[Rfam]
RNA: U1 spliceosomal RNA
RNA sequence: AUACUUACCUGUCAGGGAAGAUACUAUGAUCACAAGGCGGUUUUCCCAGGGCGAGACCUAUCCUUUGCACUCCAGAUGUGCUGACCCCUGGGAUUUCCCCAAAUGAGGGAGACUUGACUGCAUAAUCUGUGUGGUGUGGGACUGCGUUCGUGCUGUCCUUUU
Numbered sequence: 001a002u003a004c005u006u007a008c009c010u011g012u013c014a015g016g017g018a019a020g021a022u023a024c025u026a027u028g029a030u031c032a033c034a035a036g037g038c039g040g041u042u043u044u045c046c047c048a049g050g051g052c053g054a055g056a057c058c059u060a061u062c063c064u065u066u067g068c069a070c071u072c073c074a075g076a077u078g079u080g081c082u083g084a085c086c087c088c089u090g091g092g093a094u095u096u097c098c099c100c101a102a103a104u105g106a107g108g109g110a111g112a113c114u115u116g117a118c119u120g121c122a123u124a125a126u127c128u129g130u131g132u133g134g135u136g137u138g139g140g141a142c143u144g145c146g147u148u149c150g151u152g153c154u155g156u157c158c159u160u161u162u
Stems, first nucleotide, its partner, number of pairs: 013120003016047002019044003023041003027037001048089004053085001055082001057080001059078004092115002094112003098108002136161001138159004144153003
Dot-bracket structure: ............(((((.(((.(((.(.........).)))))).))((((.(.(.(.((((............)))).).)..)))))..(((((.((.......)).))).))..)))...............(.((((..(((....)))..)))).).